[Rfam]
RNA sequence: UGGGUUAAUGAUGACCACCUGUGGGGUAUGAGUCAGAGGCGAUGAAUACCUGUCCUGGAACUCUGAGAUCCAG
Numbered sequence: 001u002g003g004g005u006u007a008a009u010g011a012u013g014a015c016c017a018c019c020u021g022u023g024g025g026g027u028a029u030g031a032g033u034c035a036g037a038g039g040c041g042a043u044g045a046a047u048a049c050c051u052g053u054c055c056u057g058g059a060a061c062u063c064u065g066a067g068a069u070c071c072a073g
Base pairs, nucleotide, nucleotide: 002071003070004069005068006067
Rfam assigns this 73-nucleotide RNA from Fukomys damarensis to the family "Small nucleolar RNA SNORD113/SNORD114 family". Its family is annotated with RNA processing and nucleolus in the Gene Ontology. Rfam classes the family as a C/D-box small nucleolar RNA. The source organism's lineage runs through Eukaryota, Deuterostomia, Teleostomi, Sarcopterygii and Fukomys. A search with the family's covariance model found it, with a score of 66 bits.